The record is a 97-nucleotide RNA from Nyctibius grandis, which matches "Vault RNA" in Rfam. Pairs were carried over by alignment from the consensus structure, which is taken from published work. The match comes from Rfam's covariance-model search (58 bits). The family's RNA type in Rfam is non-coding RNA gene.

RNA sequence: GGGCCAGCUAUAGCCCAGCAGUUCCUUCGGUGUUCUACAAGCCUGUUGUGCCUCGCCCUGUGAGGGGUUCGAUCCUGCGGGCACCUCUGGCCCAUUU
Numbered sequence: 001g002g003g004c005c006a007g008c009u010a011u012a013g014c015c016c017a018g019c020a021g022u023u024c025c026u027u028c029g030g031u032g033u034u035c036u037a038c039a040a041g042c043c044u045g046u047u048g049u050g051c052c053u054c055g056c057c058c059u060g061u062g063a064g065g066g067g068u069u070c071g072a073u074c075c076u077g078c079g080g081g082c083a084c085c086u087c088u089g090g091c092c093c094a095u096u097u
Stems, first nucleotide, its partner, number of pairs: 002092006013082004018078004027072004